[Rfam]
RNA sequence: ACUUGUUUUGUUGGUGGUCAUCUAACCACGCUCCGAUUCAUCGGUGCAUGGAGUCAUGGACGGUUACACAGCCGUGAUCAUCCGUGCUUGGUUAGAUGACCAUCAGCAAACAUGUU
Numbered sequence: 001a002c003u004u005g006u007u008u009u010g011u012u013g014g015u016g017g018u019c020a021u022c023u024a025a026c027c028a029c030g031c032u033c034c035g036a037u038u039c040a041u042c043g044g045u046g047c048a049u050g051g052a053g054u055c056a057u058g059g060a061c062g063g064u065u066a067c068a069c070a071g072c073c074g075u076g077a078u079c080a081u082c083c084g085u086g087c088u089u090g091g092u093u094a095g096a097u098g099a100c101c102a103u104c105a106g107c108a109a110a111c112a113u114g115u116u
Base pairs, nucleotide, nucleotide: 005111006110007109008108010107011106012105013104014103015102016101017100018099019098020097021096022095023094024093025092026091027090028089030087031086
The family of this 116-nucleotide sequence from Eragrostis curvula is "MIR827 microRNA precursor family". Gene Ontology terms of the family: miRNA-mediated post-transcriptional gene silencing and RISC complex. A search with the family's covariance model found it, with a score of 88 bits.